[Rfam]
RNA sequence: GUGCCAUCCUGCAAUGAACAGGUCCCUAACAUGCAAUCAGCAUCUGGUUCACUUUGUCAGUUAACUAUAUCUAUAUUUAGCUGACCAUUUAGGAUGGAACAUGU
Numbered sequence: 001g002u003g004c005c006a007u008c009c010u011g012c013a014a015u016g017a018a019c020a021g022g023u024c025c026c027u028a029a030c031a032u033g034c035a036a037u038c039a040g041c042a043u044c045u046g047g048u049u050c051a052c053u054u055u056g057u058c059a060g061u062u063a064a065c066u067a068u069a070u071c072u073a074u075a076u077u078u079a080g081c082u083g084a085c086c087a088u089u090u091a092g093g094a095u096g097g098a099a100c101a102u103g104u
Stems, first nucleotide, its partner, number of pairs: 037098002041096004056085008